Rfam assigns this 100-nucleotide RNA sequence from Leifsonia sp. Root112D2 to the family "Glycine riboswitch aptamer". Taxonomically the source falls in Leifsonia (Bacteria, Actinomycetes, Micrococcales, Microbacteriaceae).
RNA sequence: ACGAUCGAUGCGGGAGAGCCGAAAGCGCGUGAAGCGUGGACGGCACCGAAGGAGCAAUCCUCCCCGACAAUCUCUCAGGUAUGCGUACCGCAUCGAACGG
Dot-bracket structure: .....((((((((.....(((...................))).(((((..(((...((......))....))))).))).......)))))))).....